[Rfam]
RNA sequence: GGUUGCCAGGCAGUGUAGUUAGCUGAUUGGUAACCGCUAACCAAGCAAUCACUAACCACACAGCCAGGUGAAC
Numbered sequence: 001g002g003u004u005g006c007c008a009g010g011c012a013g014u015g016u017a018g019u020u021a022g023c024u025g026a027u028u029g030g031u032a033a034c035c036g037c038u039a040a041c042c043a044a045g046c047a048a049u050c051a052c053u054a055a056c057c058a059c060a061c062a063g064c065c066a067g068g069u070g071a072a073c
Base pairs, nucleotide, nucleotide: 003071004070005069006068009065010064013061014060015059016058018056019055020054021053022052024051025050026049027048028047029046031044